[Rfam]
Background:
Shown here is an 84-nucleotide RNA from Brevundimonas sp. BAL3, a member of the family "terC RNA". The sequence is in the family's curated seed alignment. It is annotated as a cis-regulatory element.
RNA sequence: CCUGCGGAACGGGCCCCUCUGGCGUCUUCGCGAUCCGGCGUAUCCCUUCGCCGCAUCGUAUCGACGCGAUGUCGGACCGCACGG
Numbered sequence: 001c002c003u004g005c006g007g008a009a010c011g012g013g014c015c016c017c018u019c020u021g022g023c024g025u026c027u028u029c030g031c032g033a034u035c036c037g038g039c040g041u042a043u044c045c046c047u048u049c050g051c052c053g054c055a056u057c058g059u060a061u062c063g064a065c066g067c068g069a070u071g072u073c074g075g076a077c078c079g080c081a082c083g084g
Stems, first nucleotide, its partner, number of pairs: 006078002010074003022067005030059005